[Rfam]
RNA: MIR2630 microRNA precursor family
Organism: Medicago truncatula
RNA sequence: ACUGCAAAUAUAAAAAAUUUGGUUUUGGUCCUUGGUAUUUUGUUUUAGUCCUUGUAAAAUUGAUUCAUAUUGGAUUUGGUCAUUGUAAUAUGUAGAAUAUUUGAUUUUAGUCCCUCAAAAUGAGGACUAAAAUGAAUAUUAUAGGGACCAAUUUCAAUAUGAAAUGAUUUUACAAGGAUUAAAACAAAAUACCAAGGAUCAAAACCAAAUAUUCUAUAUUUGCAGG
Numbered sequence: 001a002c003u004g005c006a007a008a009u010a011u012a013a014a015a016a017a018u019u020u021g022g023u024u025u026u027g028g029u030c031c032u033u034g035g036u037a038u039u040u041u042g043u044u045u046u047a048g049u050c051c052u053u054g055u056a057a058a059a060u061u062g063a064u065u066c067a068u069a070u071u072g073g074a075u076u077u078g079g080u081c082a083u084u085g086u087a088a089u090a091u092g093u094a095g096a097a098u099a100u101u102u103g104a105u106u107u108u109a110g111u112c113c114c115u116c117a118a119a120a121u122g123a124g125g126a127c128u129a130a131a132a133u134g135a136a137u138a139u140u141a142u143a144g145g146g147a148c149c150a151a152u153u154u155c156a157a158u159a160u161g162a163a164a165u166g167a168u169u170u171u172a173c174a175a176g177g178a179u180u181a182a183a184a185c186a187a188a189a190u191a192c193c194a195a196g197g198a199u200c201a202a203a204a205c206c207a208a209a210u211a212u213u214c215u216a217u218a219u220u221u222g223c224a225g226g
Base pairs, nucleotide, nucleotide: 005222006221007220008219009218010217011216012215014213015212017210018209019208021206022205023204024203025202026201027200028199029198030197031196032195033194035192036191037190038189039188040187041186042185043184044183045182046181047180049178050177052175053174054173055172056171057170058169059168060167064163065162067160068159069158070157071156072155076151077150078149079148080147081146086141087140088139089138090137091136104121105120106119107118108117